This 79-nucleotide RNA from Eptesicus fuscus belongs to the Rfam family "mir-9198 microRNA precursor family". The family has 6 seed sequences and 64 matches in Rfam 15.1. The source organism's lineage runs through Eukaryota, Deuterostomia, Gnathostomata, Mammalia and Eptesicus. The family's consensus secondary structure was predicted with RNAalifold.
RNA sequence: GCCGCUGCUCGCACCUGCUGCUGGCGCCUGGUGCUGGUCCCGAUCGCUUGGUGCUGUCAGUGGGUGCGAGCGGCAGUUG
Numbered sequence: 001g002c003c004g005c006u007g008c009u010c011g012c013a014c015c016u017g018c019u020g021c022u023g024g025c026g027c028c029u030g031g032u033g034c035u036g037g038u039c040c041c042g043a044u045c046g047c048u049u050g051g052u053g054c055u056g057u058c059a060g061u062g063g064g065u066g067c068g069a070g071c072g073g074c075a076g077u078u079g
Stems, first nucleotide, its partner, number of pairs: 004074017022056007